The record is a 129-nucleotide RNA sequence from Vigna angularis, which matches "mir-172 microRNA precursor family" in Rfam. Rfam links the family to the GO terms miRNA-mediated post-transcriptional gene silencing and RISC complex. The literature on the family includes a 2002 paper in Plant Physiol by Mette et al., "Short RNAs can identify new candidate transposable element families in Arabidopsis". The family has 11 seed sequences and 2,076 matches in Rfam 15.1. It scores 71 bits against the family's covariance model. Taxonomically the source falls in Vigna angularis (Eukaryota, Euphyllophyta, Fabales, Phaseoleae). The base pairs follow the family's consensus structure, which was predicted with PFOLD. Rfam describes the family as follows. mir-172 has been experimentally verified in Arabidopsis thaliana. This family is thought to target mRNAs coding for APETALA2-like transcription factors. The mature sequence is excised from the 3' arm of the hairpin.
RNA sequence: UUUAUUGCUGCUGCAGCAUCAUCAAGAUUCCCAUAUCAAAGGGUAAGUUUAUUUGGGAGCAAUCAGGGACCACCCCAAACAAAACCCCUUGAAGCUUGUGAAUCUUGAUGAUGCUCCAUCAGCAAUCAG
Numbered sequence: 001u002u003u004a005u006u007g008c009u010g011c012u013g014c015a016g017c018a019u020c021a022u023c024a025a026g027a028u029u030c031c032c033a034u035a036u037c038a039a040a041g042g043g044u045a046a047g048u049u050u051a052u053u054u055g056g057g058a059g060c061a062a063u064c065a066g067g068g069a070c071c072a073c074c075c076c077a078a079a080c081a082a083a084a085c086c087c088c089u090u091g092a093a094g095c096u097u098g099u100g101a102a103u104c105u106u107g108a109u110g111a112u113g114c115u116c117c118a119u120c121a122g123c124a125a126u127c128a129g
Stems, first nucleotide, its partner, number of pairs: 010120001012118002015115016032098002